Shown here is a 117-nucleotide sequence from Streptomyces mangrovisoli, a member of the family "Streptomyces-metK RNA". The organism belongs to Streptomyces, within Bacteria.

[Rfam]
RNA sequence: GCGAGACAGAUGAGCCCGUGGCCGAGCGCGACCGAUAAACUGUUACCGGACGGCGCCGGGCGCAGCUCCCGAGCCGUCCGACCAUGAUCAGCCAGCAGCCGCUGCAACCCCAGGGAG
Numbered sequence: 001g002c003g004a005g006a007c008a009g010a011u012g013a014g015c016c017c018g019u020g021g022c023c024g025a026g027c028g029c030g031a032c033c034g035a036u037a038a039a040c041u042g043u044u045a046c047c048g049g050a051c052g053g054c055g056c057c058g059g060g061c062g063c064a065g066c067u068c069c070c071g072a073g074c075c076g077u078c079c080g081a082c083c084a085u086g087a088u089c090a091g092c093c094a095g096c097a098g099c100c101g102c103u104g105c106a107a108c109c110c111c112a113g114g115g116a117g
Stems, first nucleotide, its partner, number of pairs: 048079006056073001057071004093104004
Notes: The base pairs follow the family's consensus structure, which is taken from published work.